Annotation
A member of the RNA family "Vault RNA" from Prolemur simus, 98 nucleotides long. This family of RNAs are found as part of the enigmatic vault ribonucleoprotein complex. The complex consists of a major vault protein (MVP), two minor vault proteins (VPARP and TEP1), and several small untranslated RNA molecules. It has been suggested that the vault complex is involved in drug resistance.
[Rfam]
Nucleotides: 098
Base pairs, nucleotide, nucleotide: 002093005090006089007088013082014081015080018078019077020076026072027071029069030068
Number, partner (000 for none) and nucleotide at each position: 001000g002093g003000g004000a005090u006089g007088g008000c009000u010000u011000u012000a013082g014081c015080u016000c017000a018078g019077c020076g021000a022000u023000u024000c025000c026072u027071u028000c029069g030068a031000c032000a033000g034000c035000g036000u037000u038000u039000u040000a041000a042000c043000a044000a045000c046000c047000u048000c049000u050000u051000u052000g053000c054000a055000g056000a057000g058000g059000c060000a061000g062000a063000c064000c065000a066000g067000u068030u069029c070000a071027a072026g073000a074000c075000c076020u077019g078018c079000a080015g081014g082013c083000a084000c085000u086000c087000u088007c089006c090005a091000g092000g093002c094000c095000u096000u097000u098000a
A search with the family's covariance model found it, with a score of 44 bits. The source organism's lineage runs through Eukaryota, Bilateria, Chordata, Gnathostomata and Prolemur.